[Rfam]
Nucleotides: 074
Base pairs, nucleotide, nucleotide: 001073002072003071004070005069006068007067010026011025012024013023028044029043030042031041032040050066051065052064053063054062
Number, partner (000 for none) and nucleotide at each position: 001073g002072g003071u004070c005069c006068c007067g008000u009000a010026g011025c012024u013023c014000a015000g016000u017000u018000g019000g020000u021000u022000a023013g024012a025011g026010c027000g028044u029043u030042g031041g032040u033000c034000u035000u036000a037000u038000g039000a040032g041031c042030c043029g044028a045000a046000a047000g048000u049000c050066g051065c052064g053063g054062g055000u056000u057000c058000g059000a060000g061000c062054c063053c064052c065051g066050c067007c068006g069005g070004g071003a072002c073001c074000a

The record is a 74-nucleotide sequence from Cuscuta europaea, which matches "tRNA" in Rfam. NCBI's taxonomy places the organism under Eukaryota, eudicotyledons, Pentapetalae, Convolvulaceae, Cuscuta subgen. Cuscuta. Gene Ontology term of the family: triplet codon-amino acid adaptor activity. It is annotated as a transfer RNA.